[Rfam]
RNA sequence: UUUGCAAGUUCGAAGCCAUAGCAGAAGCGUUCACAGCGCGGCCUGUCAGAUUCCAGUGAGUCCGAAUUCUGCU
Numbered sequence: 001u002u003u004g005c006a007a008g009u010u011c012g013a014a015g016c017c018a019u020a021g022c023a024g025a026a027g028c029g030u031u032c033a034c035a036g037c038g039c040g041g042c043c044u045g046u047c048a049g050a051u052u053c054c055a056g057u058g059a060g061u062c063c064g065a066a067u068u069c070u071g072c073u
Stems, first nucleotide, its partner, number of pairs: 012043001015042003020073007027039003049062005